[Rfam]
RNA sequence: GCUAGAGUUAUUGGUAUAUAUAGCACUAGCCAGUGUGAUCAAAUUACGGCCAGUGCUCGUGUAACAAUUACUCCUGCU
Numbered sequence: 001g002c003u004a005g006a007g008u009u010a011u012u013g014g015u016a017u018a019u020a021u022a023g024c025a026c027u028a029g030c031c032a033g034u035g036u037g038a039u040c041a042a043a044u045u046a047c048g049g050c051c052a053g054u055g056c057u058c059g060u061g062u063a064a065c066a067a068u069u070a071c072u073c074c075u076g077c078u
Stems, first nucleotide, its partner, number of pairs: 001077002005073004010068004015063005022057006029050003

Overview:
Rfam assigns this 78-nucleotide sequence from Nicotiana tabacum to the family "MIR6145 microRNA precursor family". Rfam links the family to the GO terms miRNA-mediated post-transcriptional gene silencing and RISC complex. A search with the family's covariance model found it, with a score of 57 bits. NCBI's taxonomy places the organism under Eukaryota, Tracheophyta, eudicotyledons, Solanaceae, Nicotiana.